[Rfam]
RNA sequence: UAUCUUUGCCCGCUGAUAGACACGCUAUCAUAUACAUAAAAAUCAUUUAAAACAAUAUUGGAAUG
Numbered sequence: 001u002a003u004c005u006u007u008g009c010c011c012g013c014u015g016a017u018a019g020a021c022a023c024g025c026u027a028u029c030a031u032a033u034a035c036a037u038a039a040a041a042a043u044c045a046u047u048u049a050a051a052a053c054a055a056u057a058u059u060g061g062a063a064u065g
Stems, first nucleotide, its partner, number of pairs: 014030006
About this RNA:
This 65-nucleotide sequence belongs to the Rfam family "S15-Flavobacteria ribosomal protein leader". The family is grouped with related families in Rfam's "Ribosomal Protein S15 Leader clan". It is one of the family's seed sequences.